The family of this 97-nucleotide RNA sequence from Raphanus sativus is "Small nucleolar RNA R64/Z200 family".
Gene Ontology terms of the family: RNA processing and nucleolus.
Taxonomically the source falls in Raphanus (Eukaryota, Viridiplantae, Mesangiospermae, Gunneridae).
The family's consensus secondary structure was predicted with PFOLD.
RNA sequence: UCUCUGCGGUGAUGAUUUUAUGAAAAUAUUCACAUGUCAGACUUCAGAGAUUCUUGACGAAUCAGUGAGAAUGAAUUCAUAACGAUCUGAGCAUAGA
Numbered sequence: 001u002c003u004c005u006g007c008g009g010u011g012a013u014g015a016u017u018u019u020a021u022g023a024a025a026a027u028a029u030u031c032a033c034a035u036g037u038c039a040g041a042c043u044u045c046a047g048a049g050a051u052u053c054u055u056g057a058c059g060a061a062u063c064a065g066u067g068a069g070a071a072u073g074a075a076u077u078c079a080u081a082a083c084g085a086u087c088u089g090a091g092c093a094u095a096g097a
Base pairs, nucleotide, nucleotide: 001097002096003095005093006092007091049063050062051061052060